RNA sequence: CUUUGUGUUGGUGAUGGGGCUCACCAUAAUGCAUUACAGAUGCUAAUGGCUCCUGCUUUAAU
Numbered sequence: 001c002u003u004u005g006u007g008u009u010g011g012u013g014a015u016g017g018g019g020c021u022c023a024c025c026a027u028a029a030u031g032c033a034u035u036a037c038a039g040a041u042g043c044u045a046a047u048g049g050c051u052c053c054u055g056c057u058u059u060a061a062u
Stems, first nucleotide, its partner, number of pairs: 010025004016053006031043004

Rfam assigns this 62-nucleotide RNA from [Clostridium] cellulosi to the family "Fluoride riboswitch aptamer (crcB RNA motif)". The base pairs follow the family's consensus structure, which is taken from published work. Gene Ontology terms of the family: positive regulation of gene expression and response to fluoride. Lineage of the source: Bacteria > Bacillati > Bacillota > Oscillospiraceae > Ruminiclostridium.